A member of the RNA family "Small nucleolar RNA SNORD53/SNORD92" from Echinops telfairi, 76 nucleotides long. The organism belongs to Echinops, within Eukaryota. The family's RNA type in Rfam is C/D-box small nucleolar RNA.

[Rfam]
RNA sequence: UUGCCAUGAUGACUUCCAGUGGGUUUCGCAUAUUGCUGAGCUCCAAUGAUGACUCUUCUCUUGGCUGUCUGAGCAG
Numbered sequence: 001u002u003g004c005c006a007u008g009a010u011g012a013c014u015u016c017c018a019g020u021g022g023g024u025u026u027c028g029c030a031u032a033u034u035g036c037u038g039a040g041c042u043c044c045a046a047u048g049a050u051g052a053c054u055c056u057u058c059u060c061u062u063g064g065c066u067g068u069c070u071g072a073g074c075a076g
Base pairs, nucleotide, nucleotide: 001076002075003074004073